[Rfam]
RNA: tRNA
Organism: Rosa chinensis
RNA sequence: UCUGUUGUAGUGUAGUUGGUUAGGAUAUUUGGUUCUCACCCAAAAAGACCUGGGUUCAAGUCCCAGCGAUGGAA
Numbered sequence: 001u002c003u004g005u006u007g008u009a010g011u012g013u014a015g016u017u018g019g020u021u022a023g024g025a026u027a028u029u030u031g032g033u034u035c036u037c038a039c040c041c042a043a044a045a046a047g048a049c050c051u052g053g054g055u056u057c058a059a060g061u062c063c064c065a066g067c068g069a070u071g072g073a074a
Base pairs, nucleotide, nucleotide: 001073002072003071004070005069006068007067010026011025013023028044029043030042031041032040050066051065052064053063054062